[Rfam]
RNA sequence: GGAGAUGUGCCAGAGCGGCCGAAUGGGGCUCCCUGCUAAGGAGUUGACCCUUCUGGGGUCCGGAGGUUCGAAUCCUCUCAUCUCCG
Numbered sequence: 001g002g003a004g005a006u007g008u009g010c011c012a013g014a015g016c017g018g019c020c021g022a023a024u025g026g027g028g029c030u031c032c033c034u035g036c037u038a039a040g041g042a043g044u045u046g047a048c049c050c051u052u053c054u055g056g057g058g059u060c061c062g063g064a065g066g067u068u069c070g071a072a073u074c075c076u077c078u079c080a081u082c083u084c085c086g
Stems, first nucleotide, its partner, number of pairs: 001085007010026003028044005062078005
Shown here is an 86-nucleotide RNA sequence from Corynebacterium sp. KPL1821, a member of the family "tRNA".
It is annotated as a transfer RNA.
Lineage of the source: Bacteria > Actinomycetes > Mycobacteriales > Corynebacteriaceae > Corynebacterium.
The family's consensus secondary structure is taken from published work.
The literature on the family includes a 1997 paper in Nucleic Acids Res by Lowe and Eddy, "tRNAscan-SE: a program for improved detection of transfer RNA genes in genomic sequence".